[Rfam]
Source information:
Mason-Pfizer monkey virus packaging signal: a 286-nucleotide RNA sequence from Cavia porcellus. This family represents a group of sequences that are related to the Mason-Pfizer monkey virus (MPMV) packaging signal. The packaging signal is located in the 5' UTR and is required for specific RNA encapsidation. The match comes from Rfam's covariance-model search (59 bits). Pairs were carried over by alignment from the consensus structure, which was predicted with PFOLD.
Nucleotides: 286
Stems, first nucleotide, its partner, number of pairs: 006032002013026002037050001038048001083133001084131002086128002095123001096120002100116005140172002145169004178213003181209002221261004226256002230248003234244001274285001276283002
Number, partner (000 for none) and nucleotide at each position: 001000g002000g003000g004000u005000g006032c007031c008000c009000g010000u011000c012000a013026u014025g015000g016000g017000g018000c019000u020000c021000c022000u023000g024000g025014c026013a027000c028000g029000a030000a031007g032006g033000u034000c035000u036000c037050a038048a039000c040000g041000a042000g043000g044000g045000a046000g047000c048038u049000g050037u051000c052000c053000u054000g055000a056000g057000a058000c059000a060000c061000g062000c063000a064000u065000g066000u067000a068000a069000a070000a071000g072000u073000g074000a075000a076000a077000c078000u079000a080000a081000a082000u083133u084131u085130u086128u087127g088000u089000g090000a091000c092000c093000a094000a095123c096120g097119c098000u099000a100116c101115g102114u103113g104112g105000g106000a107000g108000c109000c110000u111000g112104c113103c114102g115101c116100g117000c118000c119097g120096c121000u122000a123095g124000a125000g126000u127087c128086a129000u130085g131084g132000u133083a134000a135000a136000u137000g138000g139000a140172c141171g142000c143000g144000a145169u146168c147167c148166g149000u150000u151000u152000c153000c154000u155000u156000u157000u158000c159000u160000g161000c162000g163000g164000c165000a166148u167147g168146g169145g170000u171141c172140g173000g174000g175000c176000a177000u178213u179212a180211a181209g182208u183000g184000a185000c186000a187000c188000u189000u190000g191000u192000g193000u194000c195000a196000g197000g198000u199000u200000u201000a202000a203000a204000u205000a206000a207000a208182g209181u210000u211180u212179u213178a214000a215000a216000g217000a218000c219000a220000a221261g222260a223259g224258g225000g226256a227255u228000a229000a230248a231247g232246g233000c234244u235000a236000a237000u238000a239000a240000a241000a242000a243000a244234g245000a246232u247231u248230u249000a250000u251000u252000g253000c254000a255227g256226u257000a258224c259223u260222u261221u262000c263000a264000a265000u266000u267000u268000a269000u270000u271000c272000a273000u274285a275000a276283g277282g278000u279000u280000u281000g282277c283276c284000c285274u286000u